[Rfam]
RNA sequence: GGUCAUGAGUGCCAGCAACAAGCCCCGGCUAGCUGGCCGGCAACCCUCCAACCGCGGUGGGGUGCCCCGGGUGAGGACCAGGCUCCCGCCAUCAGGCGGGACGCAAGCGCGGGUC
Numbered sequence: 001g002g003u004c005a006u007g008a009g010u011g012c013c014a015g016c017a018a019c020a021a022g023c024c025c026c027g028g029c030u031a032g033c034u035g036g037c038c039g040g041c042a043a044c045c046c047u048c049c050a051a052c053c054g055c056g057g058u059g060g061g062g063u064g065c066c067c068c069g070g071g072u073g074a075g076g077a078c079c080a081g082g083c084u085c086c087c088g089c090c091a092u093c094a095g096g097c098g099g100g101a102c103g104c105a106a107g108c109g110c111g112g113g114u115c
Stems, first nucleotide, its partner, number of pairs: 001079004009038001011037006021030002039066003044062003048057002082104002084101007

SAM (S-adenosyl methionine) riboswitch aptamer: a 115-nucleotide sequence from Crystallibacter crystallopoietes. Rfam describes the family as follows. SAM-IV is a mRNA element that regulates gene expression via direct sensing of S-adenosylmethionine (SAM or AdoMet). SAM-IV riboswitches share conserved nucleotide positions with the previously described SAM-I riboswitches sequence analysis and molecular recognition experiments suggest that SAM-I and SAM-IV riboswitches share similar ligand binding sites, but have different scaffolds. For this family Rfam cites "The aptamer core of SAM-IV riboswitches mimics the ligand-binding site of SAM-I riboswitches" (Weinberg et al., RNA, 2008). Its Rfam clan is "SAM clan".